Rfam assigns this 115-nucleotide RNA from Deinococcus maricopensis to the family "TPP riboswitch aptamer (THI element)". A search with the family's covariance model found it, with a score of 69 bits.

[Rfam]
RNA sequence: UGCUGUCACCAGGGGUGUCCCCAUACGCGGGGGCUGAGAGGGCCGAGCACAGCGGCCUGACCCUAGGAACCUGAUCUGGUUCACACCAGCGGAGGGAGCGUGACAGGCGCAACUG
Numbered sequence: 001u002g003c004u005g006u007c008a009c010c011a012g013g014g015g016u017g018u019c020c021c022c023a024u025a026c027g028c029g030g031g032g033g034c035u036g037a038g039a040g041g042g043c044c045g046a047g048c049a050c051a052g053c054g055g056c057c058u059g060a061c062c063c064u065a066g067g068a069a070c071c072u073g074a075u076c077u078g079g080u081u082c083a084c085a086c087c088a089g090c091g092g093a094g095g096g097a098g099c100g101u102g103a104c105a106g107g108c109g110c111a112a113c114u115g
Stems, first nucleotide, its partner, number of pairs: 006103004011064004017034005041057005070095003076089004
Rfam describes the family as follows. Vitamin B(1) in its active form thiamin pyrophosphate (TPP) is an essential coenzyme that is synthesised by coupling of pyrimidine and thiazole moieties in bacteria. The previously detected thiamin-regulatory element, thi box was extended, resulting in a new, highly conserved RNA secondary structure, the THI element, which is widely distributed in eubacteria and also occurs in some archaea. Analysis of operon structures identified a large number of new candidate thiamin-regulated genes, mostly transporters, in various prokaryotic organisms. The THI element is a riboswitch that directly binds to TPP to regulate gene expression through a variety of mechanisms in archaea, bacteria and eukaryotes. through a variety of mechanisms in archaea, bacteria and eukaryotes. Tandem TPP riboswitches have been reported where both TPP riboswitches respond independently to TPP. The structure of TPP riboswitch has been reported for Escherichia coli and Arabidopsis thaliana.